[Rfam]
RNA: Group I catalytic intron
Organism: Eutypa lata
RNA sequence: UGGCUAGUUUUAUCACUAUUCCCUUUUAUAGUAGUAAAGCAAGAUUUUCAAAUUGCGAGAAUAUCCUAAAGACUAAGUAACCAAGUUUAGGUAGUAAUACACUAAAUGGCACAGGUAAUGACUCGUGGUAUGGUAAAAUCACUUAGUAUAGAAGUAAUGAAAAUGGAUGAUUUGCAGCCAAGUACCGGUGUUUAACUUAUAUUUUUUUAGUUAUAUAUAUCGGUAUGCAGUUCAACGACUAUACGGAAAUCGGCUGUAACGGCUUAAGACAUAGUCUAACCUAGUAUGAAAGUACUAA
Numbered sequence: 001u002g003g004c005u006a007g008u009u010u011u012a013u014c015a016c017u018a019u020u021c022c023c024u025u026u027u028a029u030a031g032u033a034g035u036a037a038a039g040c041a042a043g044a045u046u047u048u049c050a051a052a053u054u055g056c057g058a059g060a061a062u063a064u065c066c067u068a069a070a071g072a073c074u075a076a077g078u079a080a081c082c083a084a085g086u087u088u089a090g091g092u093a094g095u096a097a098u099a100c101a102c103u104a105a106a107u108g109g110c111a112c113a114g115g116u117a118a119u120g121a122c123u124c125g126u127g128g129u130a131u132g133g134u135a136a137a138a139u140c141a142c143u144u145a146g147u148a149u150a151g152a153a154g155u156a157a158u159g160a161a162a163a164u165g166g167a168u169g170a171u172u173u174g175c176a177g178c179c180a181a182g183u184a185c186c187g188g189u190g191u192u193u194a195a196c197u198u199a200u201a202u203u204u205u206u207u208u209a210g211u212u213a214u215a216u217a218u219a220u221c222g223g224u225a226u227g228c229a230g231u232u233c234a235a236c237g238a239c240u241a242u243a244c245g246g247a248a249a250u251c252g253g254c255u256g257u258a259a260c261g262g263c264u265u266a267a268g269a270c271a272u273a274g275u276c277u278a279a280c281c282u283a284g285u286a287u288g289a290a291a292g293u294a295c296u297a298a
Stems, first nucleotide, its partner, number of pairs: 002024002006020003031040002043251005049245001054176006064167003177231002182226004191217001193215002235277001237276005253263004283296005